RNA sequence: ACCUGUCGCGAGCGGGCGCGCAAGCGGUGCGCGCGACACCACACACAUACCGUGCCACGGGAAGAACGAGGCACUUCAGGGCGUU
Numbered sequence: 001a002c003c004u005g006u007c008g009c010g011a012g013c014g015g016g017c018g019c020g021c022a023a024g025c026g027g028u029g030c031g032c033g034c035g036a037c038a039c040c041a042c043a044c045a046c047a048u049a050c051c052g053u054g055c056c057a058c059g060g061g062a063a064g065a066a067c068g069a070g071g072c073a074c075u076u077c078a079g080g081g082c083g084u085u
Base pairs, nucleotide, nucleotide: 004038005037006036007035008034009033010032012030013029014028017024052074053073054072055071056070058068059067